Record summary
Rfam assigns this 223-nucleotide RNA sequence from Megalops atlanticus to the family "Small nucleolar RNA SNORA53". It is annotated as an H/ACA-box small nucleolar RNA. A search with the family's covariance model found it, with a score of 102 bits. The snoRNA ACA53 belongs to the H/ACA family of pseudouridylation guide snoRNAs. The source organism's lineage runs through Eukaryota, Opisthokonta, Elopocephala, Elopiformes and Megalops.
[Rfam]
RNA sequence: AACACGCUCCUUAGAUCCACCUCUUGGGGGCGCUCCUGCACUGAAGCAGCAGCUCCAGUCUGGAGGCCCCCGGCAACUUUGUGGUUGUACAGUAGGAGGUGCUUGAGUCAUUGGCGUGUGAGAGCAGUCUACCUGCCCCUCCGGCCCCCUCGGCUGCACUGACCCCCCUGCCGGCUCUGCUGGCAGGAAGCUCCCAGUGUGGCCAGGCCGGAGGGCGGACACU
Numbered sequence: 001a002a003c004a005c006g007c008u009c010c011u012u013a014g015a016u017c018c019a020c021c022u023c024u025u026g027g028g029g030g031c032g033c034u035c036c037u038g039c040a041c042u043g044a045a046g047c048a049g050c051a052g053c054u055c056c057a058g059u060c061u062g063g064a065g066g067c068c069c070c071c072g073g074c075a076a077c078u079u080u081g082u083g084g085u086u087g088u089a090c091a092g093u094a095g096g097a098g099g100u101g102c103u104u105g106a107g108u109c110a111u112u113g114g115c116g117u118g119u120g121a122g123a124g125c126a127g128u129c130u131a132c133c134u135g136c137c138c139c140u141c142c143g144g145c146c147c148c149c150u151c152g153g154c155u156g157c158a159c160u161g162a163c164c165c166c167c168c169u170g171c172c173g174g175c176u177c178u179g180c181u182g183g184c185a186g187g188a189a190g191c192u193c194c195c196a197g198u199g200u201g202g203c204c205a206g207g208c209c210g211g212a213g214g215g216c217g218g219a220c221a222c223u
Stems, first nucleotide, its partner, number of pairs: 002119007010107005018101007025072006034064003040059004073088006133218005141211001143209004155201007167190001169188001171183003